A member of the RNA family "purD RNA motif" from Sulfurimonas aquatica, 134 nucleotides long. The family's consensus secondary structure is taken from published work.
RNA sequence: GUAGGUUUUUUGUGUGUUGGUGUUUUCGUUUGAGCUCAGUUAAUUCUAGCGAGAAAAUGUCACCGUUAGAGAAUCCUCUCUUCUCCCAAAUACGGCUUUUAGAACCGAGCCAAUUGCGAGACGGCUAUUUGGGU
Numbered sequence: 001g002u003a004g005g006u007u008u009u010u011u012g013u014g015u016g017u018u019g020g021u022g023u024u025u026u027c028g029u030u031u032g033a034g035c036u037c038a039g040u041u042a043a044u045u046c047u048a049g050c051g052a053g054a055a056a057a058u059g060u061c062a063c064c065g066u067u068a069g070a071g072a073a074u075c076c077u078c079u080c081u082u083c084u085c086c087c088a089a090a091u092a093c094g095g096c097u098u099u100u101a102g103a104a105c106c107g108a109g110c111c112a113a114u115u116g117c118g119a120g121a122c123g124g125c126u127a128u129u130u131g132g133g134u
Stems, first nucleotide, its partner, number of pairs: 003077003007073003018062005024056004034050003094111005